[Rfam]
RNA sequence: GGUGAUAAAUGAUGUCGUGACAUAGACGCAGCGGACCCGGGGGCAGUACCCGGCGGCUCCACCAUCAUCGGCGCACCCGACCCUAGACGGGCGGCGCCGAUUGUGACGGGGCCGAACUAGGAUCGACGUGUGUUGAAAGACGAUAUUUUUGCCCGGCCUGAUUGAGCCGUAAAACCGAUCACAACCACAAGUGCUAACGACAACGAGGCACUCGCGAUUGCUGCGUAA
Numbered sequence: 001g002g003u004g005a006u007a008a009a010u011g012a013u014g015u016c017g018u019g020a021c022a023u024a025g026a027c028g029c030a031g032c033g034g035a036c037c038c039g040g041g042g043g044c045a046g047u048a049c050c051c052g053g054c055g056g057c058u059c060c061a062c063c064a065u066c067a068u069c070g071g072c073g074c075a076c077c078c079g080a081c082c083c084u085a086g087a088c089g090g091g092c093g094g095c096g097c098c099g100a101u102u103g104u105g106a107c108g109g110g111g112c113c114g115a116a117c118u119a120g121g122a123u124c125g126a127c128g129u130g131u132g133u134u135g136a137a138a139g140a141c142g143a144u145a146u147u148u149u150u151g152c153c154c155g156g157c158c159u160g161a162u163u164g165a166g167c168c169g170u171a172a173a174a175c176c177g178a179u180c181a182c183a184a185c186c187a188c189a190a191g192u193g194c195u196a197a198c199g200a201c202a203a204c205g206a207g208g209c210a211c212u213c214g215c216g217a218u219u220g221c222u223g224c225g226u227a228a
Base pairs, nucleotide, nucleotide: 001153002152003151004150005149015143016142017141018140027132028131029130031129032128033127037053038052039051040050041049054114055113056112057111058110059109060108154169155168156167157166
The family of this 228-nucleotide sequence from Sphingomonas prati is "permuted transfer-messenger RNA". A search with the family's covariance model found it, with a score of 130 bits. A reference for the family is Williams and Bartel (1996), "Phylogenetic analysis of tmRNA secondary structure", RNA. By type it is a non-coding RNA gene. The source organism's lineage runs through Bacteria, Pseudomonadati, Sphingomonadales, Sphingomonadaceae and Sphingomonas.